[Rfam]
Annotation: FMN riboswitch aptamer (RFN element): a 208-nucleotide RNA from Rhodanobacter sp. MP7CTX1. The match comes from Rfam's covariance-model search (75 bits). The family's consensus secondary structure is taken from published work. Lineage of the source: Bacteria > Pseudomonadati > Gammaproteobacteria > Lysobacterales > Rhodanobacter.

RNA sequence: UAGCGUCUUCAGGGCGGGGCGAAAUUCCCCACCGGCGGUAGGUUGAAGGGGUGACCCGACAACGAGCCCGCGAGCGCCUCGGCCCGAUCCUGAUGGAGUCCCAUCCUGAUGGGACAGAACGAGGGUCAGCAGAUCCGGUCCGAUGCCGGAGCCGACGGUUGGAAGCUGGCGACAGCUUCCUCAAAGUCCGGAUAAAGAGAAGACGGUC
Dot-bracket structure: ...(((((((......(((.......)))...((((((...........................[[))))..((.....................................................))...(((((.......)))))]])).(((.............................)))........)))))))...
Numbered sequence: 001u002a003g004c005g006u007c008u009u010c011a012g013g014g015c016g017g018g019g020c021g022a023a024a025u026u027c028c029c030c031a032c033c034g035g036c037g038g039u040a041g042g043u044u045g046a047a048g049g050g051g052u053g054a055c056c057c058g059a060c061a062a063c064g065a066g067c068c069c070g071c072g073a074g075c076g077c078c079u080c081g082g083c084c085c086g087a088u089c090c091u092g093a094u095g096g097a098g099u100c101c102c103a104u105c106c107u108g109a110u111g112g113g114a115c116a117g118a119a120c121g122a123g124g125g126u127c128a129g130c131a132g133a134u135c136c137g138g139u140c141c142g143a144u145g146c147c148g149g150a151g152c153c154g155a156c157g158g159u160u161g162g163a164a165g166c167u168g169g170c171g172a173c174a175g176c177u178u179c180c181u182c183a184a185a186g187u188c189c190g191g192a193u194a195a196a197g198a199g200a201a202g203a204c205g206g207u208c
Stems, first nucleotide, its partner, number of pairs: 004205007017029003033154002035071004066152002074130002134150005156190003